This 173-nucleotide sequence from Corynebacterium aquatimens belongs to the Rfam family "c-di-AMP riboswitch aptamer (ydaO/yuaA leader)".
Lineage of the source: Bacteria > Bacillati > Actinomycetes > Mycobacteriales > Corynebacterium.
It scores 58 bits against the family's covariance model.
The family has 106 seed sequences and 7,607 matches in Rfam 15.1.
The base pairs follow the family's consensus structure.
[Rfam]
RNA sequence: ACGCUGAACACAGCUAAAUAAAUAGGACAAAAGCGGGGGACCCACCCGCGCCGCACGGCGCACAGCGGGAACCUUUCUCGCUCGGGGUGAAGCCGAAAAGUCUUCGGCCAGGCCGUUUUCAUACCUCUGCCUGAACCCGACAGCUAACUCCGCAGACGUAAUUAAGAAGAGAG
Numbered sequence: 001a002c003g004c005u006g007a008a009c010a011c012a013g014c015u016a017a018a019u020a021a022a023u024a025g026g027a028c029a030a031a032a033g034c035g036g037g038g039g040a041c042c043c044a045c046c047c048g049c050g051c052c053g054c055a056c057g058g059c060g061c062a063c064a065g066c067g068g069g070a071a072c073c074u075u076u077c078u079c080g081c082u083c084g085g086g087g088u089g090a091a092g093c094c095g096a097a098a099a100g101u102c103u104u105c106g107g108c109c110a111g112g113c114c115g116u117u118u119u120c121a122u123a124c125c126u127c128u129g130c131c132u133g134a135a136c137c138c139g140a141c142a143g144c145u146a147a148c149u150c151c152g153c154a155g156a157c158g159u160a161a162u163u164a165a166g167a168a169g170a171g172a173g
Base pairs, nucleotide, nucleotide: 002158003157005155033153034152035151036150037149038148043084085138086137087136093107094106095105096104110132111131112130113129